Rfam assigns this 95-nucleotide sequence from Candidatus Vecturithrix granuli to the family "Selenocysteine transfer RNA".
RNA sequence: AGGCUGGUUUAGGGAGCCGGUGCUCCCCGCGGGCUGCAAACCCGUUUGAGAUCGCUGAACAGGCGGUCUGUUCGGUUCAACUCCGAACCCAGCCU
Numbered sequence: 001a002g003g004c005u006g007g008u009u010u011a012g013g014g015a016g017c018c019g020g021u022g023c024u025c026c027c028c029g030c031g032g033g034c035u036g037c038a039a040a041c042c043c044g045u046u047u048g049a050g051a052u053c054g055c056u057g058a059a060c061a062g063g064c065g066g067u068c069u070g071u072u073c074g075g076u077u078c079a080a081c082u083c084c085g086a087a088c089c090c091a092g093c094c095u
Base pairs, nucleotide, nucleotide: 001095002094003093004092005091006090007089009087012027013026014025015024016023017022029045030044031043032042033041049069050068051067052066053065072086073085074084075083
Its family is annotated with triplet codon-amino acid adaptor activity in the Gene Ontology. Lineage of the source: Bacteria > Candidatus Moduliflexota > Candidatus Vecturitrichales > Candidatus Vecturitrichaceae > Candidatus Vecturithrix. Pairs were carried over by alignment from the consensus structure, which is taken from published work.